[Rfam]
RNA: SAM (S-adenosyl methionine) riboswitch aptamer
RNA sequence: GGUCCUGAGCGCCAGCAACAAGCCCCGGCUCGCUGGCCGGCAACCCCCCACUGCGGCGGGGUGCCCCGGGUGACGACCUGGCGGACGCACGACGCGUCCGCAACCCGCAGUA
Numbered sequence: 001g002g003u004c005c006u007g008a009g010c011g012c013c014a015g016c017a018a019c020a021a022g023c024c025c026c027g028g029c030u031c032g033c034u035g036g037c038c039g040g041c042a043a044c045c046c047c048c049c050a051c052u053g054c055g056g057c058g059g060g061g062u063g064c065c066c067c068g069g070g071u072g073a074c075g076a077c078c079u080g081g082c083g084g085a086c087g088c089a090c091g092a093c094g095c096g097u098c099c100g101c102a103a104c105c106c107g108c109a110g111u112a
Stems, first nucleotide, its partner, number of pairs: 001078004009038001011037006021030002039065003044061003048056002081101008